The record is a 296-nucleotide RNA from Malus baccata, which matches "Plant signal recognition particle RNA" in Rfam. The family's consensus secondary structure is taken from published work. A search with the family's covariance model found it, with a score of 194 bits.

[Rfam]
RNA sequence: GCUGAGCUAAGUCAUGCUAGCUUGUGACCCAAAUGGGGGCACCAAGGUGGUAGGACAUCGGUUCGACCGAUUCGGCAGGACUUGCUGUUGCAAUUGCUGGCUCACCCAUUCCAAGUUGUGAGUUGGGUCCUGUGGUUCGGGCUUAAGCUUGGGCCACGAGGCCCUUAGAGCGGAGGGCAAUGCGUGAGGCUGGUUUCACAGAGCAGCGAAAACCUCCCGCUCUCAACAGUGGAAGGAUUACGGGCCGGUGCUCCGCUAGCCCACUUCUAUUCAAGCAAUUUAUAUAUGUACCUGCA
Numbered sequence: 001g002c003u004g005a006g007c008u009a010a011g012u013c014a015u016g017c018u019a020g021c022u023u024g025u026g027a028c029c030c031a032a033a034u035g036g037g038g039g040c041a042c043c044a045a046g047g048u049g050g051u052a053g054g055a056c057a058u059c060g061g062u063u064c065g066a067c068c069g070a071u072u073c074g075g076c077a078g079g080a081c082u083u084g085c086u087g088u089u090g091c092a093a094u095u096g097c098u099g100g101c102u103c104a105c106c107c108a109u110u111c112c113a114a115g116u117u118g119u120g121a122g123u124u125g126g127g128u129c130c131u132g133u134g135g136u137u138c139g140g141g142c143u144u145a146a147g148c149u150u151g152g153g154c155c156a157c158g159a160g161g162c163c164c165u166u167a168g169a170g171c172g173g174a175g176g177g178c179a180a181u182g183c184g185u186g187a188g189g190c191u192g193g194u195u196u197c198a199c200a201g202a203g204c205a206g207c208g209a210a211a212a213c214c215u216c217c218c219g220c221u222c223u224c225a226a227c228a229g230u231g232g233a234a235g236g237a238u239u240a241c242g243g244g245c246c247g248g249u250g251c252u253c254c255g256c257u258a259g260c261c262c263a264c265u266u267c268u269a270u271u272c273a274a275g276c277a278a279u280u281u282a283u284a285u286a287u288g289u290a291c292c293u294g295c296a
Stems, first nucleotide, its partner, number of pairs: 001040003004023006028037003048296002053291001055289003058284001061283002065279001069276001071274002074271002077268001078262002081259002084256002087254001090251003097248007106236002109234005115227004120222004125164005131158012165170001172217005181210001183208003190201003